[Rfam]
RNA sequence: GAGAAAUGAGGAUGUAUAUGUUGGUCUUACUGUUGCUGUGAAGACUUCAGAUCCAACUCUGAUCUCACUUUAUAG
Numbered sequence: 001g002a003g004a005a006a007u008g009a010g011g012a013u014g015u016a017u018a019u020g021u022u023g024g025u026c027u028u029a030c031u032g033u034u035g036c037u038g039u040g041a042a043g044a045c046u047u048c049a050g051a052u053c054c055a056a057c058u059c060u061g062a063u064c065u066c067a068c069u070u071u072a073u074a075g
Stems, first nucleotide, its partner, number of pairs: 001066004
This 75-nucleotide RNA sequence from Varanus komodoensis belongs to the Rfam family "Small nucleolar RNA SNORD19". For this family Rfam cites "RNomics: an experimental approach that identifies 201 candidates for novel, small, non-messenger RNAs in mouse" (Huttenhofer et al., EMBO J, 2001). Rfam links the family to the GO terms RNA processing and nucleolus. A search with the family's covariance model found it, with a score of 43 bits. Pairs were carried over by alignment from the consensus structure.